The record is a 93-nucleotide RNA from Ciconia maguari, which matches "Small nucleolar RNA SNORD35" in Rfam. It scores 65 bits against the family's covariance model. The source organism's lineage runs through Eukaryota, Dipnotetrapodomorpha, Sauria, Dinosauria and Ciconia.
RNA sequence: UGGUGGUGAUGUCUGAACUCACGAUGGUCUUCAGAGCCCCCGCCGGCGAGGCGGGCUGCUGACAAUGCCGAUGGCAAUGGCUGAACCGUGAGA
Number, nucleotide and partner (000 for none) at each position: 001u088002g087003g086004u085005g000006g000007u000008g000009a000010u000011g000012u000013c000014u000015g000016a000017a000018c000019u000020c000021a000022c000023g000024a000025u000026g000027g000028u000029c000030u000031u000032c000033a000034g000035a000036g000037c000038c000039c000040c000041c000042g000043c000044c000045g000046g000047c000048g000049a000050g000051g000052c000053g000054g000055g000056c000057u000058g000059c000060u000061g000062a000063c000064a000065a000066u000067g000068c000069c000070g000071a000072u000073g000074g000075c000076a000077a000078u000079g000080g000081c000082u000083g000084a000085a004086c003087c002088g001089u000090g000091a000092g000093a000